[Rfam]
RNA sequence: GGGGCCCGGGAUCGCCGCCGGUCAGCGCAUCGCGCCCACCGGCGCGUUUCUC
Numbered sequence: 001g002g003g004g005c006c007c008g009g010g011a012u013c014g015c016c017g018c019c020g021g022u023c024a025g026c027g028c029a030u031c032g033c034g035c036c037c038a039c040c041g042g043c044g045c046g047u048u049u050c051u052c
Stems, first nucleotide, its partner, number of pairs: 016044007025035004